[Rfam]
RNA sequence: ACGGUGGAACCUCAGAUCAAGCGGCUCCCUCCGGUUAAGGGAGUGCAGCUGGGCCUCGAUACCGAGGCAACAGGACUUCAAGCCCUGUGGGACUAGC
Numbered sequence: 001a002c003g004g005u006g007g008a009a010c011c012u013c014a015g016a017u018c019a020a021g022c023g024g025c026u027c028c029c030u031c032c033g034g035u036u037a038a039g040g041g042a043g044u045g046c047a048g049c050u051g052g053g054c055c056u057c058g059a060u061a062c063c064g065a066g067g068c069a070a071c072a073g074g075a076c077u078u079c080a081a082g083c084c085c086u087g088u089g090g091g092a093c094u095a096g097c
Stems, first nucleotide, its partner, number of pairs: 010096001014094002018091001020050003024044006053068005070088005

Shown here is a 97-nucleotide RNA sequence from Armatimonas rosea, a member of the family "NiCo (Nickel/Cobalt) riboswitch aptamer". The organism belongs to Armatimonas, within Bacteria. A reference for the family is Furukawa et al. (2015), "Bacterial riboswitches cooperatively bind Ni(2+) or Co(2+) ions and control expression of heavy metal transporters", Mol Cell. It scores 44 bits against the family's covariance model.